[Rfam]
The record is an 86-nucleotide RNA sequence from Halanaerobium sp. DL-01, which matches "pan motif" in Rfam. Pairs were carried over by alignment from the consensus structure, which is taken from published work.
RNA sequence: UGGGUGGUAACUUUAAAUGAGGCCGCACCAGUAUAAGCUGUAAAUAUCAAUAUGGUCCACCUGGAUCAGAGGACCGGGAUGGGAGG
Numbered sequence: 001u002g003g004g005u006g007g008u009a010a011c012u013u014u015a016a017a018u019g020a021g022g023c024c025g026c027a028c029c030a031g032u033a034u035a036a037g038c039u040g041u042a043a044a045u046a047u048c049a050a051u052a053u054g055g056u057c058c059a060c061c062u063g064g065a066u067c068a069g070a071g072g073a074c075c076g077g078g079a080u081g082g083g084a085g086g
Base pairs, nucleotide, nucleotide: 001030002029003028004026005025006024007023008022011021012020057082058081059080060078061077062076063075064074066073067072
It is annotated as a cis-regulatory element.